[Rfam]
RNA sequence: UGAUUGUCCAAACGCAAUUCUUGUACGAGUCUGCGGCCAACCGAGAAUUGUGGCUGGACAUCUGU
Numbered sequence: 001u002g003a004u005u006g007u008c009c010a011a012a013c014g015c016a017a018u019u020c021u022u023g024u025a026c027g028a029g030u031c032u033g034c035g036g037c038c039a040a041c042c043g044a045g046a047a048u049u050g051u052g053g054c055u056g057g058a059c060a061u062c063u064g065u
Stems, first nucleotide, its partner, number of pairs: 002062003006059005013052011
Description: Shown here is a 65-nucleotide sequence from Canis lupus, a member of the family "mir-219 microRNA precursor family". Rfam 15.1 lists 1,318 matches to the family in 774 species. Pairs were carried over by alignment from the consensus structure, which was predicted with RNAalifold. On this family, see Lai et al., Genome Biol 2003: "Computational identification of Drosophila microRNA genes".